Peptidase-S11 RNA: an 80-nucleotide RNA sequence from Erwinia sorbitola.
RNA sequence: CGUAUUAUGCCUGCGCCAGCCCCCGCAACUCUGCGGGAAGCGGCGUGUGGCCUCCACACCCCGAUCAUUUGCCGUUAAGU
Numbered sequence: 001c002g003u004a005u006u007a008u009g010c011c012u013g014c015g016c017c018a019g020c021c022c023c024c025g026c027a028a029c030u031c032u033g034c035g036g037g038a039a040g041c042g043g044c045g046u047g048u049g050g051c052c053u054c055c056a057c058a059c060c061c062c063g064a065u066c067a068u069u070u071g072c073c074g075u076u077a078a079g080u
Stems, first nucleotide, its partner, number of pairs: 015044003019041002022037006045059006
Notes:
Pairs were carried over by alignment from the consensus structure, which is taken from published work.